[Rfam]
RNA: SAM riboswitch aptamer (S box leader)
Organism: Bacillus sp. V3-13
RNA sequence: UUCUUAUCUAGAGAGGUGAAGGAAUUUGGCGCGGUGAAAUCUCAGCAGCGGACUCUUUUUGAGAGUGCUGUGCUAAUUCCAACAAGCGCAAGACUUGGAAGAUAAGAG
Numbered sequence: 001u002u003c004u005u006a007u008c009u010a011g012a013g014a015g016g017u018g019a020a021g022g023a024a025u026u027u028g029g030c031g032c033g034g035u036g037a038a039a040u041c042u043c044a045g046c047a048g049c050g051g052a053c054u055c056u057u058u059u060u061g062a063g064a065g066u067g068c069u070g071u072g073c074u075a076a077u078u079c080c081a082a083c084a085a086g087c088g089c090a091a092g093a094c095u096u097g098g099a100a101g102a103u104a105a106g107a108g
Stems, first nucleotide, its partner, number of pairs: 001108008013043005021032001026082004044074004049070002052066004078100001083097004